Record summary:
A member of the RNA family "THF (Tetrahydrofolate) riboswitch aptamer" from Caproiciproducens sp. NJN-50, 97 nucleotides long. Tetrahydrofolate (THF) riboswitch was first reported for Ames et al. as an RNA motif in 5' untranslated (5'-UTR)regions of folate transport and biosynthesis genes in Firmicutes genomes. It scores 87 bits against the family's covariance model. Its family is annotated with tetrahydrofolate metabolic process in the Gene Ontology.
[Rfam]
RNA sequence: UGCAGAGUAGGAUUUUGCGCGUUAAGUGCCGACCGGACAGGGAGUUGCCGGACGGACGAAAAGGAAACUUGCGAUGCAGAGUCCGCAUCCCGCUGCU
Numbered sequence: 001u002g003c004a005g006a007g008u009a010g011g012a013u014u015u016u017g018c019g020c021g022u023u024a025a026g027u028g029c030c031g032a033c034c035g036g037a038c039a040g041g042g043a044g045u046u047g048c049c050g051g052a053c054g055g056a057c058g059a060a061a062a063g064g065a066a067a068c069u070u071g072c073g074a075u076g077c078a079g080a081g082u083c084c085g086c087a088u089c090c091c092g093c094u095g096c097u
Base pairs, nucleotide, nucleotide: 002096003095004094005093010084011083012082013081014080015079016078017077018076019075020073021072022071026057027056029055030054031053033051034050035049036048040090041089042088044086061070062069063068